[Rfam]
RNA sequence: ACUGGUCCUCGGUGGUGGCUUACGGAGAUGAUCUCCGUGGGCUUCGAUCGAAGAUCCAU
Numbered sequence: 001a002c003u004g005g006u007c008c009u010c011g012g013u014g015g016u017g018g019c020u021u022a023c024g025g026a027g028a029u030g031a032u033c034u035c036c037g038u039g040g041g042c043u044u045c046g047a048u049c050g051a052a053g054a055u056c057c058a059u
Stems, first nucleotide, its partner, number of pairs: 001059001004056004009051005017043012
Dot-bracket structure: (..((((.(((((...((((((((((((...))))))))))))...))))).))))..)